Shown here is a 244-nucleotide RNA from Amborella trichopoda, a member of the family "MIR8562 microRNA precursor family".
Its family is annotated with RISC complex and miRNA-mediated post-transcriptional gene silencing in the Gene Ontology.
Taxonomically the source falls in Amborella (Eukaryota, Streptophyta, Magnoliopsida, Amborellales).
Nucleotides: 244
Stems, first nucleotide, its partner, number of pairs: 001244017019226002022223006029216006036209006043202003061184003067179008076170003080166002097149001099146017118125002
Number, partner (000 for none) and nucleotide at each position: 001244u002243u003242u004241u005240c006239u007238a008237c009236a010235a011234a012233u013232u014231g015230g016229a017228a018000u019226g020225a021000c022223c023222u024221g025220a026219a027218a028000u029216u030215u031214g032213g033212a034211g035000u036209g037208u038207g039206u040205g041204u042000u043202c044201a045200u046000c047000a048000a049000a050000a051000a052000u053000a054000g055000a056000c057000g058000a059000a060000u061184c062183u063182a064000c065000g066000a067179a068178a069177a070176a071175a072174u073173a074172u075000c076170a077169a078168a079000a080166a081165a082000a083000u084000a085000u086000u087000u088000u089000a090000c091000a092000u093000g094000a095000a096000a097149a098000c099146a100145a101144u102143u103142g104141a105140c106139c107138a108137a109136a110135a111134u112133a113132c114131c115130c116000c117000c118125a119124a120000a121000a122000a123000g124119u125118u126000u127000u128000g129000g130115g131114g132113g133112u134111a135110u136109u137108u138107u139106g140105g141104u142103c143102a144101a145100u146099u147000u148000a149097u150000u151000u152000u153000u154000u155000c156000u157000c158000a159000a160000a161000u162000u163000a164000u165081u166080u167000g168078u169077u170076u171000u172074a173073u174072a175071u176070u177069u178068u179067u180000a181000u182063u183062a184061g185000g186000u187000g188000c189000g190000c191000u192000u193000c194000a195000c196000u197000a198000a199000g200045a201044u202043g203000u204041a205040c206039a207038c208037a209036c210000a211034u212033u213032c214031c215030a216029a217000c218027u219026u220025u221024c222023a223022g224000a225020u226019c227000c228017u229016u230015c231014c232013g233012a234011u235010u236009u237008g238007u239006a240005g241004a242003a243002a244001a